The family of this 120-nucleotide sequence from Rudaeicoccus suwonensis is "SAM (S-adenosyl methionine) riboswitch aptamer". Rfam describes the family as follows. SAM-IV is a mRNA element that regulates gene expression via direct sensing of S-adenosylmethionine (SAM or AdoMet). SAM-IV riboswitches share conserved nucleotide positions with the previously described SAM-I riboswitches sequence analysis and molecular recognition experiments suggest that SAM-I and SAM-IV riboswitches share similar ligand binding sites, but have different scaffolds. The literature on the family includes a 2008 paper in RNA by Weinberg et al., "The aptamer core of SAM-IV riboswitches mimics the ligand-binding site of SAM-I riboswitches". Taxonomically the source falls in Rudaeicoccus (Bacteria, Actinomycetes, Micrococcales, Dermacoccaceae). The family's consensus secondary structure is taken from published work.
RNA sequence: GGUCAUGAGUGUCAGCGCGUAAGCCCCGGCUUGCUGACCGGCAACCCUCCUGACGCGGUGGGGUGCCCCGGGUGAAGACCAGGCGUGGUGAUGCCGAUCAUCGCCACGCAAGCGCGGGCA
Dot-bracket structure: ((((....(.((((((.....((......)).)))))))(((..(((.((......))..))).))).........))))..((((((((((.......))))))))))...........
Numbered sequence: 001g002g003u004c005a006u007g008a009g010u011g012u013c014a015g016c017g018c019g020u021a022a023g024c025c026c027c028g029g030c031u032u033g034c035u036g037a038c039c040g041g042c043a044a045c046c047c048u049c050c051u052g053a054c055g056c057g058g059u060g061g062g063g064u065g066c067c068c069c070g071g072g073u074g075a076a077g078a079c080c081a082g083g084c085g086u087g088g089u090g091a092u093g094c095c096g097a098u099c100a101u102c103g104c105c106a107c108g109c110a111a112g113c114g115c116g117g118g119c120a
Stems, first nucleotide, its partner, number of pairs: 001080004009039001011038006022031002040067003045063003049058002083109010